[Rfam]
RNA sequence: GGAUAACACUAUUUUGCUAUCCCCGGCCAAUCACAGUAUGCCACGUGUGAUAACUUUUCCACGUGACAGUCUGUGAUUGGUCGGGAAUGGCAAAACAUUGCUAUCU
Dot-bracket structure: .((((......(((((((((.(((((((((((((((..((.((((((.((......)).)))))).))..))))))))))))))).)))))))))......)))).